[Rfam]
RNA: MIR8643 microRNA precursor family
RNA sequence: AUUUCUUUUAACAUAUCAAGAAGUCCAAUUGGCAGUGAAGAAAUAAGUAGGAAGUCGAAAACCAUCACUGUCUAUAACCAAAACCCAUUAAACCCAUACCAUGCUUUUUUCUUCACUACCAAUUCGACUUCCUGAUAUGUUGAAAGAAAU
Number, nucleotide and partner (000 for none) at each position: 001a000002u000003u000004u147005c146006u145007u144008u143009u142010a141011a140012c139013a138014u137015a136016u135017c134018a133019a000020g131021a130022a129023g128024u127025c126026c000027a124028a123029u122030u121031g120032g000033c000034a117035g116036u115037g114038a113039a112040g111041a110042a109043a108044u000045a106046a105047g000048u103049a102050g000051g100052a000053a000054g000055u000056c000057g095058a000059a000060a000061a000062c000063c000064a000065u000066c000067a000068c000069u000070g000071u000072c000073u000074a000075u000076a000077a000078c000079c000080a000081a000082a000083a000084c000085c000086c000087a000088u000089u000090a000091a000092a000093c000094c000095c057096a000097u000098a000099c000100c051101a000102u049103g048104c000105u046106u045107u000108u043109u042110u041111c040112u039113u038114c037115a036116c035117u034118a000119c000120c031121a030122a029123u028124u027125c000126g025127a024128c023129u022130u021131c020132c000133u018134g017135a016136u015137a014138u013139g012140u011141u010142g009143a008144a007145a006146g005147a004148a000149a000150u000